[Rfam]
Nucleotides: 117
Base pairs, nucleotide, nucleotide: 016032017031018030019029020028078117079116080115081114082113089112090111092109093108094107095106096105098103
Number, partner (000 for none) and nucleotide at each position: 001000c002000g003000c004000a005000u006000u007000u008000u009000u010000c011000g012000c013000g014000c015000a016032g017031g018030c019029g020028g021000a022000g023000c024000u025000c026000g027000a028020c029019c030018g031017c032016c033000g034000c035000u036000u037000c038000a039000a040000g041000u042000c043000g044000u045000g046000a047000g048000g049000g050000c051000c052000u053000u054000c055000a056000u057000u058000g059000a060000c061000a062000c063000g064000c065000a066000c067000c068000g069000c070000g071000a072000c073000a074000c075000g076000c077000u078117u079116g080115g081114g082113g083000u084000c085000g086000a087000g088000c089112c090111g091000a092109u093108c094107u095106g096105c097000c098103g099000g100000g101000u102000c103098u104000u105096g106095c107094a108093g109092g110000u111090u112089g113082c114081c115080c116079c117078g